[Rfam]
RNA sequence: UUUCACCACUAGGGGUGCUUGUAAAAGCUGAGAGAGACGGGCGUGUCUUAACCCUUAACACCUGAACUAGGUAAUACUAGCGUAGGAAAGCGGUGCUGUUGUAUG
Numbered sequence: 001u002u003u004c005a006c007c008a009c010u011a012g013g014g015g016u017g018c019u020u021g022u023a024a025a026a027g028c029u030g031a032g033a034g035a036g037a038c039g040g041g042c043g044u045g046u047c048u049u050a051a052c053c054c055u056u057a058a059c060a061c062c063u064g065a066a067c068u069a070g071g072u073a074a075u076a077c078u079a080g081c082g083u084a085g086g087a088a089a090g091c092g093g094u095g096c097u098g099u100u101g102u103a104u105g
Base pairs, nucleotide, nucleotide: 006093007092009090010089011055012054013053014052017028018027019026020025035048036047037046038045039044061086062085063084064083067080068079069078070077
TPP riboswitch aptamer (THI element): a 105-nucleotide sequence from Peribacillus cavernae. Its family is annotated with thiamine pyrophosphate binding in the Gene Ontology. The base pairs follow the family's consensus structure, which is taken from published work.